[Rfam]
Shown here is a 225-nucleotide RNA from an Alcaligenaceae bacterium, a member of the family "permuted transfer-messenger RNA".
NCBI's taxonomy places the organism under Bacteria, Pseudomonadota, Betaproteobacteria, Burkholderiales, Alcaligenaceae.
The literature on the family includes a 2003 paper in Nucleic Acids Res by Zwieb et al., "tmRDB (tmRNA database)".
About the family: Bacterial tmRNA, also known as 10Sa RNA or SsrA, is named for its dual tRNA and mRNA-like properties.
RNA sequence: AGCUGUAUAUCUGAUUGACUGACAGUUUUCUGGACGCGGGUUCGACUCCCGCCGCCUCCACCAUAAGUGCAUUAUGUUCAUAAGUUGUGUACUUAGUGUAUUUAUGACGGGGGCGUACAGGUUUCGACAGGGAAAAAUAGGAAGAUUGGCAGCCGGUAGGCGAAGACCGUAAAUCUAGCAAACUCUAUAAAUGCAAAUGACGAAAGUUACGCAUUAGCCGCCUAA
Number, nucleotide and partner (000 for none) at each position: 001a000002g153003c152004u151005g150006u000007a000008u000009a000010u000011c000012u000013g000014a000015u143016u142017g000018a000019c000020u000021g000022a000023c000024a000025g000026u133027u132028u131029u000030c130031u129032g128033g000034a000035c000036g052037c051038g050039g049040g048041u000042u000043c000044g000045a000046c000047u000048c040049c039050c038051g037052c036053c115054g114055c113056c112057u111058c110059c109060a000061c000062c000063a000064u000065a000066a000067g000068u000069g000070c000071a000072u000073u000074a000075u000076g000077u000078u000079c000080a000081u000082a000083a000084g000085u000086u000087g000088u000089g000090u000091a000092c000093u000094u000095a000096g000097u000098g000099u000100a000101u000102u000103u000104a000105u000106g000107a000108c000109g059110g058111g057112g056113g055114c054115g053116u000117a000118c000119a000120g000121g000122u000123u000124u000125c000126g000127a000128c032129a031130g030131g028132g027133a026134a000135a000136a000137a000138u000139a000140g000141g000142a016143a015144g000145a000146u000147u000148g000149g000150c005151a004152g003153c002154c169155g168156g167157u166158a000159g000160g000161c000162g000163a000164a000165g000166a157167c156168c155169g154170u000171a000172a000173a000174u000175c000176u000177a000178g000179c000180a000181a000182a000183c000184u000185c000186u000187a000188u000189a000190a000191a000192u000193g000194c000195a000196a000197a000198u000199g000200a000201c000202g000203a000204a000205a000206g000207u000208u000209a000210c000211g000212c000213a000214u000215u000216a000217g000218c000219c000220g000221c000222c000223u000224a000225a000